[Rfam]
RNA: MIR5269 microRNA precursor family
Organism: Medicago truncatula
RNA sequence: UUGGUUUAAAUCAAGGUGGGUCUCACACUUUGGAAAUAGAUUCCACUUAAAGUGGUGAGACAUGCAUUAAUUUCAUCCAA
Numbered sequence: 001u002u003g004g005u006u007u008a009a010a011u012c013a014a015g016g017u018g019g020g021u022c023u024c025a026c027a028c029u030u031u032g033g034a035a036a037u038a039g040a041u042u043c044c045a046c047u048u049a050a051a052g053u054g055g056u057g058a059g060a061c062a063u064g065c066a067u068u069a070a071u072u073u074c075a076u077c078c079a080a
Base pairs, nucleotide, nucleotide: 001080002079003078004077006075008073009072010071011070013068014067016065017064018063023058024057025056026054027053028052029051030050031049032048